The record is a 106-nucleotide RNA sequence from Vulpes vulpes, which matches "mir-8834 microRNA precursor family" in Rfam. The base pairs follow the family's consensus structure, which was predicted with RNAalifold.
[Rfam]
RNA sequence: AGGAGGAUCAACUCCAGUGGCUCCGGCCAGCUCUGGAGCCCUGGAUUCAGCUCCUGCAGUAGCUACAGAGCUUUCCGUCUGCAGGGCCUGGUGGCUCUGGGCUGGG
Number, nucleotide and partner (000 for none) at each position: 001a000002g098003g097004a096005g095006g000007a000008u000009c090010a089011a000012c086013u085014c084015c000016a000017g000018u000019g079020g078021c077022u000023c000024c000025g074026g073027c000028c000029a072030g071031c070032u069033c068034u067035g066036g000037a064038g000039c000040c000041c059042u058043g057044g000045a000046u000047u000048c000049a000050g000051c000052u000053c000054c000055u000056g000057c043058a042059g041060u000061a000062g000063c000064u037065a000066c035067a034068g033069a032070g031071c030072u029073u026074u025075c000076c000077g021078u020079c019080u000081g000082c000083a000084g014085g013086g012087c000088c000089u010090g009091g000092u000093g000094g000095c005096u004097c003098u002099g000100g000101g000102c000103u000104g000105g000106g000
Description
Gene Ontology terms of the family: RISC complex and miRNA-mediated post-transcriptional gene silencing. Lineage of the source: Eukaryota > Metazoa > Gnathostomata > Laurasiatheria > Vulpes. The family has 2 seed sequences and 13,926 matches in Rfam 15.1.